[Rfam]
This 85-nucleotide RNA sequence from Gossypium mustelinum belongs to the Rfam family "small nucleolar RNA snoR114". Rfam 15.1 lists 1,645 matches to the family in 183 species. A reference for the family is Chen and Wu (2009), "Mining small RNA sequencing data: a new approach to identify small nucleolar RNAs in Arabidopsis", Nucleic Acids Res.
RNA sequence: AAGCAGUGACGAUAGCUGCGCUUUAGCGGAGCUGGGUUCUUCGCAAUGGUCUGAUUUUAAGACGAUUAACGGCGCUUCUGAGCUU
Numbered sequence: 001a002a003g004c005a006g007u008g009a010c011g012a013u014a015g016c017u018g019c020g021c022u023u024u025a026g027c028g029g030a031g032c033u034g035g036g037u038u039c040u041u042c043g044c045a046a047u048g049g050u051c052u053g054a055u056u057u058u059a060a061g062a063c064g065a066u067u068a069a070c071g072g073c074g075c076u077u078c079u080g081a082g083c084u085u
Base pairs, nucleotide, nucleotide: 001085002084003083004082

The family's consensus secondary structure was predicted with RNAalifold. By type it is a C/D-box small nucleolar RNA. The source organism's lineage runs through Eukaryota, Tracheophyta, Spermatophyta, Mesangiospermae and Gossypium.